The family of this 93-nucleotide RNA from Vitis vinifera is "small nucleolar RNA snoR114".
Lineage of the source: Eukaryota > Viridiplantae > Streptophyta > Viteae > Vitis.
[Rfam]
RNA sequence: GAGCAGUGACGAUUGAUUUGCGCUAAACCUGUGAUGGCUGGGUCUCAUCACCAACGUCUGAUGUAUCGGACGACAAUACGCGCAUCUGAGCUC
Numbered sequence: 001g002a003g004c005a006g007u008g009a010c011g012a013u014u015g016a017u018u019u020g021c022g023c024u025a026a027a028c029c030u031g032u033g034a035u036g037g038c039u040g041g042g043u044c045u046c047a048u049c050a051c052c053a054a055c056g057u058c059u060g061a062u063g064u065a066u067c068g069g070a071c072g073a074c075a076a077u078a079c080g081c082g083c084a085u086c087u088g089a090g091c092u093c
Base pairs, nucleotide, nucleotide: 001093002092003091004090

The literature on the family includes a 2009 paper in Nucleic Acids Res by Chen and Wu, "Mining small RNA sequencing data: a new approach to identify small nucleolar RNAs in Arabidopsis".